[Rfam]
RNA sequence: UGUUGGGGUGAGGAUUGAUUAUACGGAAUAAAUAUCAUGUCGAUUUAAAUAACAGACUACAAUUAUCUGACCAAUG
Number, nucleotide and partner (000 for none) at each position: 001u076002g075003u074004u073005g072006g071007g000008g000009u000010g000011a000012g000013g000014a000015u000016u000017g000018a000019u000020u000021a000022u000023a000024c000025g000026g000027a000028a000029u000030a000031a000032a000033u000034a000035u000036c000037a000038u000039g000040u000041c000042g000043a000044u000045u000046u000047a000048a000049a000050u000051a000052a000053c000054a000055g000056a000057c000058u000059a000060c000061a000062a000063u000064u000065a000066u000067c000068u000069g000070a000071c006072c005073a004074a003075u002076g001
This 76-nucleotide RNA from Apium graveolens belongs to the Rfam family "Small nucleolar RNA Z155".
Rfam classes the family as a C/D-box small nucleolar RNA.
Rfam 15.1 lists 429 matches to the family in 196 species.
Lineage of the source: Eukaryota > asterids > Apioideae > Apieae > Apium.
The pairing is the family consensus, mapped onto this sequence.